RNA: pemK RNA
RNA sequence: AUAAUGAUUCUCCCGCCUUGAACGCGUCACUGCAUUGGGUGGCUGGACGAGAACCGUGCAGGGGUGAAAUUCCCGUGA
Dot-bracket structure: ...........(((((((..................))))))(((.(((.....))).)))(((.......))))...